Rfam assigns this 77-nucleotide RNA sequence from Nezara viridula to the family "mir-981 microRNA precursor family". Rfam 15.1 lists 180 matches to the family in 170 species. Taxonomically the source falls in Nezara (Eukaryota, Eumetabola, Neoheteroptera, Pentatomomorpha).

[Rfam]
Nucleotides: 077
Base pairs, nucleotide, nucleotide: 002076004074005073006072013065014064015063016062017061018060019059020058021057030048031047032046033045034044
Number, partner (000 for none) and nucleotide at each position: 001000c002076u003000c004074g005073g006072c007000a008000u009000a010000g011000u012000u013065c014064g015063g016062g017061u018060u019059u020058c021057g022000c023000g024000g025000c026000a027000a028000u029000u030048g031047a032046g033045c034044c035000u036000u037000u038000a039000u040000g041000u042000a043000u044034g045033g046032u047031u048030c049000g050000u051000u052000g053000u054000c055000g056000a057021c058020g059019a060018a061017a062016c063015c064014u065013g066000a067000a068000u069000g070000g071000u072006g073005u074004c075000a076002g077000a